[Rfam]
This 87-nucleotide RNA from Saimiri boliviensis belongs to the Rfam family "mir-515 microRNA precursor family". The base pairs follow the family's consensus structure, which was predicted with RNAalifold. Rfam links the family to the GO terms RISC complex and miRNA-mediated post-transcriptional gene silencing. The organism belongs to Saimiri boliviensis, within Eukaryota. It scores 82 bits against the family's covariance model. For this family Rfam cites "Identification of hundreds of conserved and nonconserved human microRNAs" (Bentwich et al., Nat Genet, 2005).
RNA sequence: UCUCAGGCGGUGACCCUCUAGACGGAUGCACUUUCUUUGUCUGAAAGAAAUAGAAAGUGUACCCGUUUAGAGGAUUACUGUUUGAGA
Numbered sequence: 001u002c003u004c005a006g007g008c009g010g011u012g013a014c015c016c017u018c019u020a021g022a023c024g025g026a027u028g029c030a031c032u033u034u035c036u037u038u039g040u041c042u043g044a045a046a047g048a049a050a051u052a053g054a055a056a057g058u059g060u061a062c063c064c065g066u067u068u069a070g071a072g073g074a075u076u077a078c079u080g081u082u083u084g085a086g087a
Base pairs, nucleotide, nucleotide: 001087002086003085004084005083007081008080009079010078011077012076013075016072017071018070020068021067022066023065024064025063027061028060029059030058031057032056033055034054035053038052